[Rfam]
RNA sequence: UGGGGAAGCAUCCAAAGGGAUCGCAUUGAUCCUUCCAUCCAUGGUGUUGAUGGCUGUCAUCAAUCAACCAGCUCGACGGAUCAUGCGAUCCUUUUGGAAGCUUCCUC
Number, nucleotide and partner (000 for none) at each position: 001u000002g107003g106004g105005g104006a103007a000008g101009c100010a000011u098012c097013c096014a095015a094016a093017g092018g091019g090020a089021u088022c000023g086024c085025a084026u083027u000028g082029a081030u080031c079032c078033u000034u000035c000036c075037a000038u000039c000040c000041a000042u000043g000044g000045u000046g000047u000048u000049g000050a000051u000052g000053g000054c000055u000056g000057u000058c000059a000060u000061c000062a000063a000064u000065c000066a000067a000068c000069c000070a000071g000072c000073u000074c000075g036076a000077c000078g032079g031080a030081u029082c028083a026084u025085g024086c023087g000088a021089u020090c019091c018092u017093u016094u015095u014096g013097g012098a011099a000100g009101c008102u000103u006104c005105c004106u003107c002

This 107-nucleotide RNA from Triticum urartu belongs to the Rfam family "mir-393 microRNA precursor family". The base pairs follow the family's consensus structure. On this family, see Kruszka et al., J Plant Physiol 2012: "Role of microRNAs and other sRNAs of plants in their changing environments".